RNA sequence: AAGUGUUGUCAUAUCACACCUGACUGUGAUAACUCUGUAGGCAAUCGUUCGUAAGAAGAAUUUAAGAAACCAAAAAUGAAAGCCCUUCUCCUAGUAGUUAGCCUAGUCGUGAUUAGCGUGGUGGUGAUUAUUAUCCCACCGUGCGGGGCUGCACUUGGACGAAGAAAGGCUUAUUAAACAAGCCUGAACCUGAAAAGAACCCCGCACCGAAAGGUCCGGGGUUUUUUUUUGGCCAGAGCAAAAUUGAGGCGAGAAUAGAAAAUGAGCAACAGCAUAAAAUUCUGCGCAGAACCUAAAAA
Dot-bracket structure: ....((((((((..((....))...))))))))....(.((...(.(.((.......))...).)....)).)..........(.(.(((.(....(((.(.((((.(((.....))).(((((.(((....))))))))((.((((......)))).))(......((.((........)).)).....).((((((.(((.(.(((....)))).))).)))))).)))).)..)))...)..)))..).)..(((((.(((........)))....)))))...............